[Rfam]
RNA sequence: ACCUGGUCGCACGGGAGUCCGGGUACGGGCUGAGAGGGAGCUGCGCCGCUCCGACCGUCGAACCUGAUCCGGGUCAUGCCGGCGCAGGGAGCGUGGGAACUGUGGAA
Numbered sequence: 001a002c003c004u005g006g007u008c009g010c011a012c013g014g015g016a017g018u019c020c021g022g023g024u025a026c027g028g029g030c031u032g033a034g035a036g037g038g039a040g041c042u043g044c045g046c047c048g049c050u051c052c053g054a055c056c057g058u059c060g061a062a063c064c065u066g067a068u069c070c071g072g073g074u075c076a077u078g079c080c081g082g083c084g085c086a087g088g089g090a091g092c093g094u095g096g097g098a099a100c101u102g103u104g105g106a107a
Stems, first nucleotide, its partner, number of pairs: 008093003011058004017030005037052005063088004069082004
A member of the RNA family "TPP riboswitch aptamer (THI element)" from Actinokineospora fastidiosa, 107 nucleotides long. From the family's description: Vitamin B(1) in its active form thiamin pyrophosphate (TPP) is an essential coenzyme that is synthesised by coupling of pyrimidine and thiazole moieties in bacteria. The organism belongs to Actinokineospora, within Bacteria.